[Rfam]
RNA sequence: GUUAUCGGAUUCACCUCAAUCCACAUGUGUUGUGGUGGAUUGAAGUGAAAUUUAAUUUCAUCCCAAUCCACCCAACACAUGUGGAUUGAUGUGAAUCCGACU
Numbered sequence: 001g002u003u004a005u006c007g008g009a010u011u012c013a014c015c016u017c018a019a020u021c022c023a024c025a026u027g028u029g030u031u032g033u034g035g036u037g038g039a040u041u042g043a044a045g046u047g048a049a050a051u052u053u054a055a056u057u058u059c060a061u062c063c064c065a066a067u068c069c070a071c072c073c074a075a076c077a078c079a080u081g082u083g084g085a086u087u088g089a090u091g092u093g094a095a096u097c098c099g100a101c102u
Stems, first nucleotide, its partner, number of pairs: 005100010016089017035071008045061003
RNA: MIR5565 microRNA precursor family
Organism: Miscanthus lutarioriparius